Rfam assigns this 100-nucleotide RNA sequence from Shewanella woodyi to the family "Purine riboswitch aptamer". Gene Ontology term of the family: purine nucleobase biosynthetic process. For this family Rfam cites "Riboswitches Control Fundamental Biochemical Pathways in Bacillus subtilis and Other Bacteria" (Mandal et al., Cell, 2003). Pairs were carried over by alignment from the consensus structure, which is taken from published work. From the family's description: Riboswitches are metabolite binding domains within certain messenger RNAs that serve as precision sensors for their corresponding targets.
[Rfam]
RNA sequence: GCCUCCACAAAACUUAAGCUUCGUAUAAUCCCAAUGAUAUGGUUUGGGAGUUUCUACCAAGAGCCUUAAAUUCUUGAUUAUGAAGUCUGUAGCUUUAUAU
Numbered sequence: 001g002c003c004u005c006c007a008c009a010a011a012a013c014u015u016a017a018g019c020u021u022c023g024u025a026u027a028a029u030c031c032c033a034a035u036g037a038u039a040u041g042g043u044u045u046g047g048g049a050g051u052u053u054c055u056a057c058c059a060a061g062a063g064c065c066u067u068a069a070a071u072u073c074u075u076g077a078u079u080a081u082g083a084a085g086u087c088u089g090u091a092g093c094u095u096u097a098u099a100u
Base pairs, nucleotide, nucleotide: 018086019085020084021083022082023081024080025079029049030048031047032046033045034044058076059075060074061073062072063071